[Rfam]
RNA sequence: AUUUAUCGCAGCGAUUCACCUCCUCCCGAAACGCUGCGGCCGAUCAGCGGUCACCUCCUCCCGACCGUGGGUCAUUUUCAGAAGCCUGCCGCACCUCCUCCCGCGGCAGGCUUUUUUC
Numbered sequence: 001a002u003u004u005a006u007c008g009c010a011g012c013g014a015u016u017c018a019c020c021u022c023c024u025c026c027c028g029a030a031a032c033g034c035u036g037c038g039g040c041c042g043a044u045c046a047g048c049g050g051u052c053a054c055c056u057c058c059u060c061c062c063g064a065c066c067g068u069g070g071g072u073c074a075u076u077u078u079c080a081g082a083a084g085c086c087u088g089c090c091g092c093a094c095c096u097c098c099u100c101c102c103g104c105g106g107c108a109g110g111c112u113u114u115u116u117u118c
Stems, first nucleotide, its partner, number of pairs: 007038003011034003015030003042073004047068005082113011
The family of this 118-nucleotide sequence from Pararhizobium polonicum is "Alphaproteobacterial ar14". For this family Rfam cites "A survey of sRNA families in alpha-proteobacteria" (del Val et al., RNA Biol, 2012). Smr14C2 was renamed NfeR1 (Nodule Formation Efficiency RNA) highly expressed in salt stress and during the symbiotic interaction on legume roots. The organism belongs to Pararhizobium, within Bacteria.